A member of the RNA family "mir-30 microRNA precursor family" from Castor canadensis, 73 nucleotides long. A reference for the family is Lagos-Quintana et al. (2001), "Identification of novel genes coding for small expressed RNAs", Science. Rfam links the family to the GO terms RISC complex and gene silencing by miRNA. The match comes from Rfam's covariance-model search (67 bits). This family consists of the mammalian microRNA (miRNA) precursor mir-30a. Animal miRNAs are transcribed as ~70nt precursors and subsequently processed by the Dicer enzyme to give a ~22nt product. In this case the mature sequence comes from both the 3' (miR-30) and 5' (mir-97-6) arms of the precursor. The extents of the hairpin precursors are not generally known and are estimated based on hairpin prediction. The source organism's lineage runs through Eukaryota, Opisthokonta, Sarcopterygii, Mammalia and Castor.
[Rfam]
RNA sequence: UCAGUUCAUGUAAACAUCCUACACUCAGCUGUAAUAUAUGAUUGGCUGGGAGGUGGAUGUUUACUUCAGCUGU
Numbered sequence: 001u002c003a004g005u006u007c008a009u010g011u012a013a014a015c016a017u018c019c020u021a022c023a024c025u026c027a028g029c030u031g032u033a034a035u036a037u038a039u040g041a042u043u044g045g046c047u048g049g050g051a052g053g054u055g056g057a058u059g060u061u062u063a064c065u066u067c068a069g070c071u072g073u
Stems, first nucleotide, its partner, number of pairs: 002072005008066001010064010022052001024050007